Record summary
Shown here is a 160-nucleotide RNA sequence from Phenylobacterium parvum, a member of the family "caulobacter sRNA CC2171".
RNA sequence: CAACCAUUGAAAGGAGGUGAUCCAGUGUCUCAUUGUCUUCAUCCGCAUGCGGAAACCGUGACCUGGACCUCCGUCGGAGAGGCGCGCGCCUAGGCGACGGGUUGCGGGACCGCAGGGCGGUCCGACAAUGGAGGGGCCGUUCCGGCGACGGGGCGGCCCC
Numbered sequence: 001c002a003a004c005c006a007u008u009g010a011a012a013g014g015a016g017g018u019g020a021u022c023c024a025g026u027g028u029c030u031c032a033u034u035g036u037c038u039u040c041a042u043c044c045g046c047a048u049g050c051g052g053a054a055a056c057c058g059u060g061a062c063c064u065g066g067a068c069c070u071c072c073g074u075c076g077g078a079g080a081g082g083c084g085c086g087c088g089c090c091u092a093g094g095c096g097a098c099g100g101g102u103u104g105c106g107g108g109a110c111c112g113c114a115g116g117g118c119g120g121u122c123c124g125a126c127a128a129u130g131g132a133g134g135g136g137c138c139g140u141u142c143c144g145g146c147g148a149c150g151g152g153g154c155g156g157c158c159c160c
Base pairs, nucleotide, nucleotide: 016023017022031130032129033128034127035126036125037124044066050060051059068082069081070080071079084105085104086103087101089100090099110120111119112118113117133160134159135158136157137156138155139154140153141152142151143150144149
A search with the family's covariance model found it, with a score of 103 bits. NCBI's taxonomy places the organism under Bacteria, Pseudomonadati, Alphaproteobacteria, Caulobacterales, Phenylobacterium. On this family, see Landt et al., Mol Microbiol 2008: "Small non-coding RNAs in Caulobacter crescentus".